[Rfam]
RNA sequence: CAUCGGCGUACAUCACCGGGGACGUGUCCCCAUUGAGGUGCCGAGAGGGACAGGCCUCGGCAAAAGCAUGGUUACCAUGGAAAGCCGGAACAUCAAGUGACUGGGUAGGGUUUGGUAGGCGCAAGCUCGAACAACCCGGACCCG
Dot-bracket structure: ..((((((..(.(((..(((((....)))))..))).)))))))..(.......).(((((.....(((((...)))))....))))).............(((((.(((((.....(((....))).....)))))..)))))
This 144-nucleotide RNA from Muribaculaceae bacterium Isolate-002 belongs to the Rfam family "RT-3 RNA". By type it is a small RNA.